[Rfam]
RNA: Bacterial small subunit ribosomal RNA, nucleotides 943 to 1542
Organism: Halanaerobium praevalens
RNA sequence: UGACGGGGGCCCGCACAAGCGGUGGAGCAUGUGGUUUAAUUCGAAGCAACGCGAAGAACCUUACCGAGAAUUGACAUCCCGUGACCAUCUAUGAGAGUAGAAUUUAGCACUUUGUGCUACACGGAGACAGGUGGUGCAUGGCUGUCGUCAGCUCGUGUCGUGAGAUGUUGGGUUAAGUCCCGCAACGAGCGCAACCCCUAUUCUUAGUUGCCAGCGAGUAAUGUCGGGGACUCUAAGAAGACUGCCGGUGAAAGUCGGAGGAAGGUGGGGAUGACGUCAAGUCCUCAUGCCCUUUAUAUCUCGGGCUACACACGUGCUACAAUGGUUGAUACAGAGGGGAGCUAAGCUGCGAAGUGGAGCAAAUCCUUGAAAAUCAAUCCCAGUUCGGAUUGCAGGCUGCAACUCGCCUGUAUGAAGUUGGAAUCGCUAGUAAUCGCAGGUCAGCAUACUGCGGUGAAUACGUUCCCGGGCCUUGUACACACCGCCCGUCACACCAAUCGAGUUGGGUGCACCAGAAGUCAUCUGCGGAUGCCAAAGGUGUGCCCGGCAAGAGGGGUGAAGUCGUAACAAGGUAGCCGUACCGGAAGGUGCGGCUGGAUC
Numbered sequence: 001u002g003a004c005g006g007g008g009g010c011c012c013g014c015a016c017a018a019g020c021g022g023u024g025g026a027g028c029a030u031g032u033g034g035u036u037u038a039a040u041u042c043g044a045a046g047c048a049a050c051g052c053g054a055a056g057a058a059c060c061u062u063a064c065c066g067a068g069a070a071u072u073g074a075c076a077u078c079c080c081g082u083g084a085c086c087a088u089c090u091a092u093g094a095g096a097g098u099a100g101a102a103u104u105u106a107g108c109a110c111u112u113u114g115u116g117c118u119a120c121a122c123g124g125a126g127a128c129a130g131g132u133g134g135u136g137c138a139u140g141g142c143u144g145u146c147g148u149c150a151g152c153u154c155g156u157g158u159c160g161u162g163a164g165a166u167g168u169u170g171g172g173u174u175a176a177g178u179c180c181c182g183c184a185a186c187g188a189g190c191g192c193a194a195c196c197c198c199u200a201u202u203c204u205u206a207g208u209u210g211c212c213a214g215c216g217a218g219u220a221a222u223g224u225c226g227g228g229g230a231c232u233c234u235a236a237g238a239a240g241a242c243u244g245c246c247g248g249u250g251a252a253a254g255u256c257g258g259a260g261g262a263a264g265g266u267g268g269g270g271a272u273g274a275c276g277u278c279a280a281g282u283c284c285u286c287a288u289g290c291c292c293u294u295u296a297u298a299u300c301u302c303g304g305g306c307u308a309c310a311c312a313c314g315u316g317c318u319a320c321a322a323u324g325g326u327u328g329a330u331a332c333a334g335a336g337g338g339g340a341g342c343u344a345a346g347c348u349g350c351g352a353a354g355u356g357g358a359g360c361a362a363a364u365c366c367u368u369g370a371a372a373a374u375c376a377a378u379c380c381c382a383g384u385u386c387g388g389a390u391u392g393c394a395g396g397c398u399g400c401a402a403c404u405c406g407c408c409u410g411u412a413u414g415a416a417g418u419u420g421g422a423a424u425c426g427c428u429a430g431u432a433a434u435c436g437c438a439g440g441u442c443a444g445c446a447u448a449c450u451g452c453g454g455u456g457a458a459u460a461c462g463u464u465c466c467c468g469g470g471c472c473u474u475g476u477a478c479a480c481a482c483c484g485c486c487c488g489u490c491a492c493a494c495c496a497a498u499c500g501a502g503u504u505g506g507g508u509g510c511a512c513c514a515g516a517a518g519u520c521a522u523c524u525g526c527g528g529a530u531g532c533c534a535a536a537g538g539u540g541u542g543c544c545c546g547g548c549a550a551g552a553g554g555g556g557u558g559a560a561g562u563c564g565u566a567a568c569a570a571g572g573u574a575g576c577c578g579u580a581c582c583g584g585a586a587g588g589u590g591c592g593g594c595u596g597g598a599u600c
Stems, first nucleotide, its partner, number of pairs: 001479002003476003007473007015463002019427005024320001026318008034309002040055004064304006077127002079124005088101005105119004130293002133291004139287002141282003144278001146276002151190006157166003169182004196270004201239007211228002215226003242261002245258005324379007336367003341360002346355003386417001391412007433455007482571001484568001487564002492558004498552002502548012518533001520531004573596010